This 99-nucleotide RNA sequence from Leersia perrieri belongs to the Rfam family "Small nucleolar RNA R30/Z108". A search with the family's covariance model found it, with a score of 98 bits. Pairs were carried over by alignment from the consensus structure, which was predicted with PFOLD. snoR30 is a C/D box small nucleolar RNA which acts as a methylation guide for 18S ribosomal RNA in plants. NCBI's taxonomy places the organism under Eukaryota, Streptophyta, Euphyllophyta, Magnoliopsida, Leersia. On this family, see Marker et al., Curr Biol 2002: "Experimental RNomics. Identification of 140 Candidates for Small Non-Messenger RNAs in the Plant Arabidopsis thaliana".
RNA sequence: GACUCUUACGAUGAGGAUGUCAAGCUCCCUCUUCUGAAGUCUUUUGAGGACACUCUCGCUGGCAGAAUCGAACCAAUUAACAUAGCCACCACUGAGUAA
Numbered sequence: 001g002a003c004u005c006u007u008a009c010g011a012u013g014a015g016g017a018u019g020u021c022a023a024g025c026u027c028c029c030u031c032u033u034c035u036g037a038a039g040u041c042u043u044u045u046g047a048g049g050a051c052a053c054u055c056u057c058g059c060u061g062g063c064a065g066a067a068u069c070g071a072a073c074c075a076a077u078u079a080a081c082a083u084a085g086c087c088a089c090c091a092c093u094g095a096g097u098a099a
Stems, first nucleotide, its partner, number of pairs: 006099004